The family of this 211-nucleotide RNA sequence from Phyllostomus discolor is "Small nucleolar RNA SNORA73 family". The family's RNA type in Rfam is H/ACA-box small nucleolar RNA. Rfam links the family to the GO terms RNA processing and nucleolus. For this family Rfam cites "5'ETS rRNA processing facilitated by four small RNAs: U14, E3, U17, and U3" (Enright et al., RNA, 1996). Clan: snR30-U17 clan. The match comes from Rfam's covariance-model search (121 bits). From the family's description: U17 (SNORA73A and SNORA73B) also known as E1 belongs to the H/ACA class of small nucleolar RNAs (snoRNAs). Vertebrate U17 is intron-encoded and ranges in length from 200-230 nucleotides, longer than most snoRNAs. It is one of the most abundant snoRNAs in human cells and is essential for the cleavage of pre-rRNA within the 5' external transcribed spacer (ETS). This cleavage leads to the formation of 18S rRNA. Regions of the U17 RNA are complementary to rRNA and act as guides for RNA/RNA interactions, although these regions do not seem to be well conserved between organisms. Pairs were carried over by alignment from the consensus structure, which is taken from published work. Taxonomically the source falls in Phyllostomus (Eukaryota, Eumetazoa, Teleostomi, Boreoeutheria).

RNA sequence: UCAGUGUGGACACCCUCGGGAGGUCAGGUCAUUCUUCUCAGGGCUCAAUGCAGGUGCCAUAGAGGAGCAUAGGGCUCUACCCCAUGACAUACAAUCCCUUUCUAUGAUGUUGGAAAGAAAGCCAGGCCAUCAGUCUGUGUCUGCAUAUUCCUACAGCUUCUCGGAGUCCUGUGGAUGAUGCCUGAGGAGACAAGCCAUGCAGGAAACAUCU
Numbered sequence: 001u002c003a004g005u006g007u008g009g010a011c012a013c014c015c016u017c018g019g020g021a022g023g024u025c026a027g028g029u030c031a032u033u034c035u036u037c038u039c040a041g042g043g044c045u046c047a048a049u050g051c052a053g054g055u056g057c058c059a060u061a062g063a064g065g066a067g068c069a070u071a072g073g074g075c076u077c078u079a080c081c082c083c084a085u086g087a088c089a090u091a092c093a094a095u096c097c098c099u100u101u102c103u104a105u106g107a108u109g110u111u112g113g114a115a116a117g118a119a120a121g122c123c124a125g126g127c128c129a130u131c132a133g134u135c136u137g138u139g140u141c142u143g144c145a146u147a148u149u150c151c152u153a154c155a156g157c158u159u160c161u162c163g164g165a166g167u168c169c170u171g172u173g174g175a176u177g178a179u180g181c182c183u184g185a186g187g188a189g190a191c192a193a194g195c196c197a198u199g200c201a202g203g204a205a206a207c208a209u210c211u
Stems, first nucleotide, its partner, number of pairs: 001113007008051001010049001014043003019038004054105003064097003067092001069090002072085001140203007157189006166176004